RNA sequence: GGCCCGUGUCCACAAUGAAUUGUGGACACGGGUCCAGGGCAUAAUUUGCCUAGGAUGGUGGUAUAGUUGGGCUUACCUUUGAAGGCUGGGCUUGUGGUGCUAUCUACUGGCCUGCCCAUUCUAAGUUAUGAGUUCGGUCGUGGAGUUUCUGCGAAGGCGGAGGCUUCUCGACCAUUAGAUCGGAGGGCACCGCGUAGCAGCGACCACCUCUUCCUCUCUGCAGUGGAAGGAUUACGGGCCGGAGCAUCAAAAGUCCACUAACGCCUGAUGGGUUGUCCAAACUGAACCAUCAUCUUU
Numbered sequence: 001g002g003c004c005c006g007u008g009u010c011c012a013c014a015a016u017g018a019a020u021u022g023u024g025g026a027c028a029c030g031g032g033u034c035c036a037g038g039g040c041a042u043a044a045u046u047u048g049c050c051u052a053g054g055a056u057g058g059u060g061g062u063a064u065a066g067u068u069g070g071g072c073u074u075a076c077c078u079u080u081g082a083a084g085g086c087u088g089g090g091c092u093u094g095u096g097g098u099g100c101u102a103u104c105u106a107c108u109g110g111c112c113u114g115c116c117c118a119u120u121c122u123a124a125g126u127u128a129u130g131a132g133u134u135c136g137g138u139c140g141u142g143g144a145g146u147u148u149c150u151g152c153g154a155a156g157g158c159g160g161a162g163g164c165u166u167c168u169c170g171a172c173c174a175u176u177a178g179a180u181c182g183g184a185g186g187g188c189a190c191c192g193c194g195u196a197g198c199a200g201c202g203a204c205c206a207c208c209u210c211u212u213c214c215u216c217u218c219u220g221c222a223g224u225g226g227a228a229g230g231a232u233u234a235c236g237g238g239c240c241g242g243a244g245c246a247u248c249a250a251a252a253g254u255c256c257a258c259u260a261a262c263g264c265c266u267g268a269u270g271g272g273u274u275g276u277c278c279a280a281a282c283u284g285a286a287c288c289a290u291c292a293u294c295u296u297u
Stems, first nucleotide, its partner, number of pairs: 001050003004031012052296010064284002067281002071277001073275001075273002078271002083266004088256006095249001097247003101244001107242008116230002119228005125221002130216003136173005142167011182211005193202003
Shown here is a 297-nucleotide RNA sequence from Ipomoea nil, a member of the family "Plant signal recognition particle RNA". The family is grouped with related families in Rfam's "SRP clan". By type it is a non-coding RNA gene.